[Rfam]
RNA sequence: UGGAAAUGAGGACAAAAAAUGCAAGUCUGGAUUUUAUUAUGAAGACUUCUAAUCCAACUCUGAUCCAAAUAUUUUC
Numbered sequence: 001u002g003g004a005a006a007u008g009a010g011g012a013c014a015a016a017a018a019a020u021g022c023a024a025g026u027c028u029g030g031a032u033u034u035u036a037u038u039a040u041g042a043a044g045a046c047u048u049c050u051a052a053u054c055c056a057a058c059u060c061u062g063a064u065c066c067a068a069a070u071a072u073u074u075u076c
Stems, first nucleotide, its partner, number of pairs: 001067004

The family of this 76-nucleotide RNA from Oryzias melastigma is "Small nucleolar RNA SNORD19".
Taxonomically the source falls in Oryzias (Eukaryota, Deuterostomia, Gnathostomata, Clupeocephala).
The family is grouped with related families in Rfam's "SNORD19 clan".